[Rfam]
RNA sequence: UGACAACUGUAUUCGAGUGUGUGGAUAGAGUAUUAUCAUCCUCUAGCACCAUUCGAAUUCAGUGCUC
Numbered sequence: 001u002g003a004c005a006a007c008u009g010u011a012u013u014c015g016a017g018u019g020u021g022u023g024g025a026u027a028g029a030g031u032a033u034u035a036u037c038a039u040c041c042u043c044u045a046g047c048a049c050c051a052u053u054c055g056a057a058u059u060c061a062g063u064g065c066u067c
Base pairs, nucleotide, nucleotide: 002066005063007062008061009060011058012057013056014055015054017052018051019050020048021047026045027044028043029042
Rfam assigns this 67-nucleotide sequence from Manduca sexta to the family "mir-29 microRNA precursor family". The sequence is in the family's curated seed alignment. A reference for the family is Ambros (2001), "microRNAs: tiny regulators with great potential", Cell. The family has 168 seed sequences and 3,328 matches in Rfam 15.1.